The record is a 153-nucleotide sequence from Cephalotus follicularis, which matches "U12 minor spliceosomal RNA" in Rfam.
On this family, see Tarn and Steitz, Trends Biochem Sci 1997: "Pre-mRNA splicing: the discovery of a new spliceosome doubles the challenge".
The organism belongs to Cephalotus, within Eukaryota.
[Rfam]
RNA sequence: UUGCCUUAAACUAAUGAGUAAGGAAAACAAAGCGAGCAGUGAGAGUUGCUCGCCGUGUCAUGCAUGAAUGUGCACACGAAUUUAUGGAGGGGUUAUAGGCUGGCCUAGCGUUGACGCUGCUUACUUUGCAGAACUCGCUUGUGCGGGCCUCCC
Numbered sequence: 001u002u003g004c005c006u007u008a009a010a011c012u013a014a015u016g017a018g019u020a021a022g023g024a025a026a027a028c029a030a031a032g033c034g035a036g037c038a039g040u041g042a043g044a045g046u047u048g049c050u051c052g053c054c055g056u057g058u059c060a061u062g063c064a065u066g067a068a069u070g071u072g073c074a075c076a077c078g079a080a081u082u083u084a085u086g087g088a089g090g091g092g093u094u095a096u097a098g099g100c101u102g103g104c105c106u107a108g109c110g111u112u113g114a115c116g117c118u119g120c121u122u123a124c125u126u127u128g129c130a131g132a133a134c135u136c137g138c139u140u141g142u143g144c145g146g147g148c149c150u151c152c153c
Stems, first nucleotide, its partner, number of pairs: 004023005032053008055075004091153002097150005103144001105141001108138003117131004

Rfam links the family to the GO terms mRNA branch site recognition, U12 snRNP and pre-mRNA branch point binding.